[Rfam]
The family of this 85-nucleotide RNA from Orthoflavivirus iunctionis is "Insect-specific Flavivirus exoribonuclease-resistant RNA element". On this family, see Iwakawa et al., J Virol 2008: "A viral noncoding RNA generated by cis-element-mediated protection against 5'->3' RNA decay represses both cap-independent and cap-dependent translation". Rfam's curators write: The exoribonuclease-resistant RNA elements (xrRNA) are described throughout all groups of flaviviruses. Usually, each virus harbors two xrRNAs, xrRNA1 and xrRNA2, in the beginning of the 3' UTR. The formation of these stem-loops, especially xrRNA1, is vital to ensure resistance against XRN1 activity. The Y-shaped stem-loop is also termed SL II and SL IV, respectively. In order to function as xrRNA, the sequence downstream is needed as well, since the upper loop region forms a pseudoknot (PK) with the single-stranded region directly downstream to its respective hairpin. In some species, the region downstream also forms a small hairpin. In such cases, the PK interactions takes place between the two loop regions. Conserved formation of these structures were observed in mammalian cells but not in mosquito cells, suggesting this region has varying functions in different hosts. In plant-viruses, xrRNA elements have been observed as well, showing some similarities to flaviviral xrRNAs. However, plant-virus xrRNA and flaviviral xrRNA are distinguishable by their underlying three-dimensional folds. It is one of the family's seed sequences. NCBI's taxonomy places the organism under Viruses, Riboviria, Flasuviricetes, Amarillovirales, Orthoflavivirus iunctionis.

RNA sequence: GGCACAUUAGUGUCGGGCGUGACGCACCCGCUCCCCUCAGUCCCCUGUGCAACAGGGAGGGCACUUGUAACCCCCGUAGGAGGGU
Numbered sequence: 001g002g003c004a005c006a007u008u009a010g011u012g013u014c015g016g017g018c019g020u021g022a023c024g025c026a027c028c029c030g031c032u033c034c035c036c037u038c039a040g041u042c043c044c045c046u047g048u049g050c051a052a053c054a055g056g057g058a059g060g061g062c063a064c065u066u067g068u069a070a071c072c073c074c075c076g077u078a079g080g081a082g083g084g085u
Base pairs, nucleotide, nucleotide: 001032002031003030010025011024012023013022014021015020033061034060035059043057044056045055046054047053